This 75-nucleotide RNA sequence from Xylanimonas protaetiae belongs to the Rfam family "Actino-pnp RNA". By type it is a cis-regulatory element.

RNA sequence: CCCGGUCCUCGGUAGUGGCCUCCCGACCGCCCCGCUCCUGCGGGCCUCGUCGGUGGGCCUCGAUCGAAGACCGCC
Numbered sequence: 001c002c003c004g005g006u007c008c009u010c011g012g013u014a015g016u017g018g019c020c021u022c023c024c025g026a027c028c029g030c031c032c033c034g035c036u037c038c039u040g041c042g043g044g045c046c047u048c049g050u051c052g053g054u055g056g057g058c059c060u061c062g063a064u065c066g067a068a069g070a071c072c073g074c075c
Stems, first nucleotide, its partner, number of pairs: 003073005009067005017059005023053005